The record is an 85-nucleotide sequence from Tenebrio molitor, which matches "mir-282 microRNA precursor family" in Rfam.
RNA sequence: AUGAGGUGAAGAGGUAGCCUCUCCUAGGCUUUGUCUGUACUUUGGCCGAGACAUAGCCUGAUUGAGACUAACUCUAGCCUUAGCA
Number, nucleotide and partner (000 for none) at each position: 001a000002u000003g000004a000005g000006g000007u000008g000009a000010a000011g000012a073013g072014g000015u070016a069017g068018c000019c066020u065021c000022u000023c000024c000025u000026a000027g058028g057029c056030u055031u000032u053033g052034u051035c050036u049037g000038u000039a000040c000041u000042u000043u000044g000045g000046c000047c000048g000049a036050g035051a034052c033053a032054u000055a030056g029057c028058c027059u000060g000061a000062u000063u000064g000065a020066g019067a000068c017069u016070a015071a000072c013073u012074c000075u000076a000077g000078c000079c000080u000081u000082a000083g000084c000085a000